[Rfam]
RNA sequence: AACUCAGCCACCACCAAGAUGCAAGUGUGGAAGAGUAGCCUUGGAU
Numbered sequence: 001a002a003c004u005c006a007g008c009c010a011c012c013a014c015c016a017a018g019a020u021g022c023a024a025g026u027g028u029g030g031a032a033g034a035g036u037a038g039c040c041u042u043g044g045a046u
Stems, first nucleotide, its partner, number of pairs: 001036001004033001008030002012025001014044005
Shown here is a 46-nucleotide RNA from Ginger chlorotic fleck-associated tombusvirus, a member of the family "Exoribonuclease-resistant RNA (xrRNA) plant-infecting virus (class 3)". From the family's description: Exoribonuclease-resistant RNA (xrRNA) plant-infecting virus (class 3) is a ncRNA that was reported in Plant viruses. Its family is annotated with viral RNA genome replication in the Gene Ontology. The base pairs follow the family's consensus structure, which is taken from published work. The family's RNA type in Rfam is cis-regulatory element. Rfam's curators put it in the seed alignment.